[Rfam]
RNA sequence: AUAAGGUCCAUAGCAAAAGUGCUCACAUCAUGGCCCAGUCAGAUUCUAACAAAUCUACGAAUUAUGCU
Numbered sequence: 001a002u003a004a005g006g007u008c009c010a011u012a013g014c015a016a017a018a019g020u021g022c023u024c025a026c027a028u029c030a031u032g033g034c035c036c037a038g039u040c041a042g043a044u045u046c047u048a049a050c051a052a053a054u055c056u057a058c059g060a061a062u063u064a065u066g067c068u
Base pairs, nucleotide, nucleotide: 005035006034008033009032012068013067014066015065017063018062019031020030021029041056042055043054044053045052